RNA sequence: UUUUCAGCGGUUUUUAUCAGAUUCCUGUUCUGAUAAAAGUUGGUGAGAUGGCAAACCGCCAACGUAGCGACUCGCAGUGGAUUGACACCGAGACGAUACGUUUUUUU
Numbered sequence: 001u002u003u004u005c006a007g008c009g010g011u012u013u014u015u016a017u018c019a020g021a022u023u024c025c026u027g028u029u030c031u032g033a034u035a036a037a038a039g040u041u042g043g044u045g046a047g048a049u050g051g052c053a054a055a056c057c058g059c060c061a062a063c064g065u066a067g068c069g070a071c072u073c074g075c076a077g078u079g080g081a082u083u084g085a086c087a088c089c090g091a092g093a094c095g096a097u098a099c100g101u102u103u104u105u106u107u
Base pairs, nucleotide, nucleotide: 002048003047004046005045006044008042009041010040011039012038013037014036015035016034017033018032019031061102062101063100064099065098066097068095069094071092072091073090074089077088078087079086
About this RNA
23S methyl RNA motif: a 107-nucleotide sequence from Vagococcus teuberi. A reference for the family is Weinberg et al. (2007), "Identification of 22 candidate structured RNAs in bacteria using the CMfinder comparative genomics pipeline", Nucleic Acids Res. A search with the family's covariance model found it, with a score of 69 bits. By type it is a cis-regulatory element.